[Rfam]
RNA sequence: ACCUGACACCUUUACAACGGAUCGUCCGGCACGUACCUGCCGGUGAAGGGAAGUUUU
Numbered sequence: 001a002c003c004u005g006a007c008a009c010c011u012u013u014a015c016a017a018c019g020g021a022u023c024g025u026c027c028g029g030c031a032c033g034u035a036c037c038u039g040c041c042g043g044u045g046a047a048g049g050g051a052a053g054u055u056u057u
Stems, first nucleotide, its partner, number of pairs: 009049006026043006
The record is a 57-nucleotide sequence from Ruaniaceae bacterium KH17, which matches "msiK RNA" in Rfam. NCBI's taxonomy places the organism under Bacteria, Bacillati, Actinomycetes, Micrococcales, Ruaniaceae. Rfam classes the family as a cis-regulatory element.